The record is a 76-nucleotide sequence from Alligator mississippiensis, which matches "Mammalian CPEB3 ribozyme" in Rfam.
Taxonomically the source falls in Alligator (Eukaryota, Chordata, Dipnotetrapodomorpha, Tetrapoda).
For this family Rfam cites "A genomewide search for ribozymes reveals an HDV-like sequence in the human CPEB3 gene" (Salehi-Ashtiani et al., Science, 2006).
[Rfam]
RNA sequence: AGAGGUCCAGAAAGGCCACAGAAGCAGCGCUCAUAGUGCGCCCCUGUCAGAUUCCAAUGAAUCUGCCAAUUCUGCU
Numbered sequence: 001a002g003a004g005g006u007c008c009a010g011a012a013a014g015g016c017c018a019c020a021g022a023a024g025c026a027g028c029g030c031u032c033a034u035a036g037u038g039c040g041c042c043c044c045u046g047u048c049a050g051a052u053u054c055c056a057a058u059g060a061a062u063c064u065g066c067c068a069a070u071u072c073u074g075c076u
Stems, first nucleotide, its partner, number of pairs: 014043002017040001020076002023073002026070001027039003048065007